[Rfam]
Nucleotides: 050
Base pairs, nucleotide, nucleotide: 001042002041003040004039005038006017007016008015009014
Number, partner (000 for none) and nucleotide at each position: 001042u002041g003040a004039c005038c006017a007016c008015u009014c010000u011000u012000a013000g014009g015008a016007g017006u018000u019000a020000a021000a022000g023000c024000c025000a026000u027000a028000c029000g030000g031000a032000c033000a034000g035000c036000u037000a038005g039004g040003u041002c042001a043000a044000a045000g046000g047000c048000c049000g050000g